[Rfam]
RNA sequence: AAUUCUUGUUUCUCGUGCGGCGCCAUGACUAUAACCGUGUUACUUGCCUUAUUCGCUACAUACGAUAUGGUAGGUGUCAAGUCACUGGCUAGAGAAACUAGGCCAUCUUAGUGCUCUUUCGAUGAUUUGUUAAAGAUACAUUAGAAGAAAUUUUAGUGGAUCACCAGGAAUCAUCGAGGGCCGGUAGGUCAAACAUUC
Numbered sequence: 001a002a003u004u005c006u007u008g009u010u011u012c013u014c015g016u017g018c019g020g021c022g023c024c025a026u027g028a029c030u031a032u033a034a035c036c037g038u039g040u041u042a043c044u045u046g047c048c049u050u051a052u053u054c055g056c057u058a059c060a061u062a063c064g065a066u067a068u069g070g071u072a073g074g075u076g077u078c079a080a081g082u083c084a085c086u087g088g089c090u091a092g093a094g095a096a097a098c099u100a101g102g103c104c105a106u107c108u109u110a111g112u113g114c115u116c117u118u119u120c121g122a123u124g125a126u127u128u129g130u131u132a133a134a135g136a137u138a139c140a141u142u143a144g145a146a147g148a149a150a151u152u153u154u155a156g157u158g159g160a161u162c163a164c165c166a167g168g169a170a171u172c173a174u175c176g177a178g179g180g181c182c183g184g185u186a187g188g189u190c191a192a193a194c195a196u197u198c
Base pairs, nucleotide, nucleotide: 014020022089023088024087026084027083028082029081042075043074044073045072046071047070048069050067051066052065053064107188108187109186110185113181114180115179116178117177120176121175122174123173124172125171126170127169136161137160139158140157142155143154144153145152146151